[Rfam]
RNA sequence: GGGGGCGAUCGGUUUCGACGGUGACCUGUUCGCUGCAGGGAAGCGUGCCGAGAACGCCGGGUCCGCUCGUGGAUGACCCCGGCAAAAGAAUAAGUGCUAAAUCUAACCGCACUGAGUUCGCUCUCGCUGCCUGAUUUUUAGUCAGGAUUAACCAGUGAGCAGCCGCUCCGUUCACUCCUCCUCGUCUUUGGGAGGAUGCUGAGCGUCGUUUAGAAGACUUGCUGAUGCAGUUGAGCCUCAGGGCUGCAUCGGGACUUUAACUGCGGAUAUGCUCGCCAUCAGUUGUCUGCGACAUCGAUGGGGGCAGAAAAAUCGCCAACUUGGCCAGCAGACUACGCACGUAGAAGACUGUGGGCUCGGUCAUCGGACCGGGGUUCAAUUCCCCGCGCCUCCACCA
Numbered sequence: 001g002g003g004g005g006c007g008a009u010c011g012g013u014u015u016c017g018a019c020g021g022u023g024a025c026c027u028g029u030u031c032g033c034u035g036c037a038g039g040g041a042a043g044c045g046u047g048c049c050g051a052g053a054a055c056g057c058c059g060g061g062u063c064c065g066c067u068c069g070u071g072g073a074u075g076a077c078c079c080c081g082g083c084a085a086a087a088g089a090a091u092a093a094g095u096g097c098u099a100a101a102u103c104u105a106a107c108c109g110c111a112c113u114g115a116g117u118u119c120g121c122u123c124u125c126g127c128u129g130c131c132u133g134a135u136u137u138u139u140a141g142u143c144a145g146g147a148u149u150a151a152c153c154a155g156u157g158a159g160c161a162g163c164c165g166c167u168c169c170g171u172u173c174a175c176u177c178c179u180c181c182u183c184g185u186c187u188u189u190g191g192g193a194g195g196a197u198g199c200u201g202a203g204c205g206u207c208g209u210u211u212a213g214a215a216g217a218c219u220u221g222c223u224g225a226u227g228c229a230g231u232u233g234a235g236c237c238u239c240a241g242g243g244c245u246g247c248a249u250c251g252g253g254a255c256u257u258u259a260a261c262u263g264c265g266g267a268u269a270u271g272c273u274c275g276c277c278a279u280c281a282g283u284u285g286u287c288u289g290c291g292a293c294a295u296c297g298a299u300g301g302g303g304g305c306a307g308a309a310a311a312a313u314c315g316c317c318a319a320c321u322u323g324g325c326c327a328g329c330a331g332a333c334u335a336c337g338c339a340c341g342u343a344g345a346a347g348a349c350u351g352u353g354g355g356c357u358c359g360g361u362c363a364u365c366g367g368a369c370c371g372g373g374g375u376u377c378a379a380u381u382c383c384c385c386g387c388g389c390c391u392c393c394a395c396c397a
Base pairs, nucleotide, nucleotide: 001393002392003391004390005389006388007387019366020365021364022363023362024361025360026359028357033354034353035352036351037350038349044341045340046339047338048337049069050068051067052066056083057082058081059080060079061078130146131145132144133143134142135141136140169205170204171203172202173201174200176196177195178194179193184218185217186216187215188214189213223251224250225249226248227247228246229245230244231243234268236266237265239263272303273302274301282295283294285333286332287331288330370386371385372384373383374382